[Rfam]
RNA sequence: ACCUCCUGUGCCUACUGAGCUGAUUACAGUUUUAUUGAAACACUGGCUCAGUUCAGCAGGAACAGGAG
Numbered sequence: 001a002c003c004u005c006c007u008g009u010g011c012c013u014a015c016u017g018a019g020c021u022g023a024u025u026a027c028a029g030u031u032u033u034a035u036u037g038a039a040a041c042a043c044u045g046g047c048u049c050a051g052u053u054c055a056g057c058a059g060g061a062a063c064a065g066g067a068g
Stems, first nucleotide, its partner, number of pairs: 003068004008063002011060003015056009027045004
Overview
The record is a 68-nucleotide RNA from Synaphobranchus kaupii, which matches "mir-24 microRNA precursor family" in Rfam. This family represents the microRNA (miRNA) mir-24 family. miRNAs are transcribed as ~70nt precursors (modelled here) and subsequently processed by the Dicer enzyme to give a ~22nt product. In this case the mature sequence comes from the 3' arm of the precursor. The extents of the hairpin precursors are not generally known and are estimated based on hairpin prediction. The products are thought to have regulatory roles through complementarity to mRNA. The involvement of Dicer in miRNA processing suggests a relationship with the phenomenon of RNA interference. miRNAs are numbered based on the sequence of the mature RNA. miR-24 has been identified in human and mouse. A reference for the family is Lagos-Quintana et al. (2001), "Identification of novel genes coding for small expressed RNAs", Science. A search with the family's covariance model found it, with a score of 84 bits. Lineage of the source: Eukaryota > Metazoa > Deuterostomia > Elopocephala > Synaphobranchus.